[Rfam]
RNA sequence: GGCCAGAUGUCCGAGUGGUUAAGGAGACAGACUAGAAUCGUCGCUUAUCUGUUAGGCUCUGCCUGCGCAGGUUCAAGUCCUGCUCUGGUCG
Numbered sequence: 001g002g003c004c005a006g007a008u009g010u011c012c013g014a015g016u017g018g019u020u021a022a023g024g025a026g027a028c029a030g031a032c033u034a035g036a037a038u039c040g041u042c043g044c045u046u047a048u049c050u051g052u053u054a055g056g057c058u059c060u061g062c063c064u065g066c067g068c069a070g071g072u073u074c075a076a077g078u079c080c081u082g083c084u085c086u087g088g089u090c091g
Stems, first nucleotide, its partner, number of pairs: 001090007010025003028061004067083005
tRNA: a 91-nucleotide RNA from Rhodotorula graminis. NCBI's taxonomy places the organism under Eukaryota, Basidiomycota, Microbotryomycetes, Sporidiobolaceae, Rhodotorula graminis. It scores 48 bits against the family's covariance model. The base pairs follow the family's consensus structure, which is taken from published work.